[Rfam]
RNA sequence: AUUUCCGAGGGGCGCUGCGACAGUUUGCCUGUUCUGCAUGAUUGGAUUCAUGCCUUAACAGUGCAAUCUGCCAGGCUCGGAAUACAUCUUUUUUCAUGUAACGGCGCUCAUCAUUA
Dot-bracket structure: ..((((((............(((.((((..................................)))).)))......))))))..................................
This 116-nucleotide sequence from Advenella faeciporci belongs to the Rfam family "SAH (S-adenosyl-L-homocysteine) riboswitch aptamer". It scores 55 bits against the family's covariance model. Its family is annotated with regulation of gene expression and S-adenosylhomocysteine metabolic process in the Gene Ontology.